The record is a 129-nucleotide sequence from Jaculus jaculus, which matches "Small nucleolar RNA SNORA25" in Rfam. The base pairs follow the family's consensus structure, which was predicted with RNAfold. It scores 138 bits against the family's covariance model. Rfam's curators write: ACA25 is a member of the H/ACA class of snoRNA that guide the sites of modification of uridines to pseudouridines. Taxonomically the source falls in Jaculus (Eukaryota, Amniota, Theria, Dipodinae).
RNA sequence: GGGUCAUUUCAAAGAGGGCUUGUUGGGCUAUAAAACCAAGAGCUCUUAACGCUGUGACCAAAGACUGAUGUUCUCCACAGGAUGACAUAGUCACUCAGUAGUGCUGUGUUUUUCUGAGGAGAUACAUUU
Numbered sequence: 001g002g003g004u005c006a007u008u009u010c011a012a013a014g015a016g017g018g019c020u021u022g023u024u025g026g027g028c029u030a031u032a033a034a035a036c037c038a039a040g041a042g043c044u045c046u047u048a049a050c051g052c053u054g055u056g057a058c059c060a061a062a063g064a065c066u067g068a069u070g071u072u073c074u075c076c077a078c079a080g081g082a083u084g085a086c087a088u089a090g091u092c093a094c095u096c097a098g099u100a101g102u103g104c105u106g107u108g109u110u111u112u113u114c115u116g117a118g119g120a121g122a123u124a125c126a127u128u129u
Stems, first nucleotide, its partner, number of pairs: 002059006014047008023039001026037002072122005079115004087107004092103004